Rfam assigns this 105-nucleotide RNA sequence from Geobacter argillaceus to the family "TPP riboswitch aptamer (THI element)".
[Rfam]
RNA sequence: GAUGCCAGCUGGGGGAGUUCGCAAGAACUGAGAUGGAGCCACGGCCCCAAACCCUUUGAACCUGAUCCGGUUAAUCCCGGCGUAGGGAAGCGGCCAGAAAACCUC
Dot-bracket structure: .....(.(((((((..((((....))))......((.((....)).))...)))).....((((..((((......))))..))))..))).)............